mir-23 microRNA precursor family: a 76-nucleotide RNA from Albula goreensis.
RNA sequence: CGUCCAGGGGGAUUCCUGGCAGAGUGAUUUUGGAAUCAGUAGACUGAAUCACAUUGCCAGGGAUUUCCAAUGGCUG
Numbered sequence: 001c002g003u004c005c006a007g008g009g010g011g012a013u014u015c016c017u018g019g020c021a022g023a024g025u026g027a028u029u030u031u032g033g034a035a036u037c038a039g040u041a042g043a044c045u046g047a048a049u050c051a052c053a054u055u056g057c058c059a060g061g062g063a064u065u066u067c068c069a070a071u072g073g074c075u076g
Base pairs, nucleotide, nucleotide: 001076002075004073005072006071010068011067012064013063014062015061016060017059018058019057020056021055022054024052025051026050027049028048029047030046